About this RNA: The family of this 47-nucleotide sequence from Novosphingobium barchaimii is "chrB-b RNA".

RNA sequence: ACGGGCACGCGCGGACGCCCGUUCAGACGGCACCCGUCCAAGUCCGC
Numbered sequence: 001a002c003g004g005g006c007a008c009g010c011g012c013g014g015a016c017g018c019c020c021g022u023u024c025a026g027a028c029g030g031c032a033c034c035c036g037u038c039c040a041a042g043u044c045c046g047c
Stems, first nucleotide, its partner, number of pairs: 001022006011047005026038005
Pairs were carried over by alignment from the consensus structure, which is taken from published work. It scores 47 bits against the family's covariance model.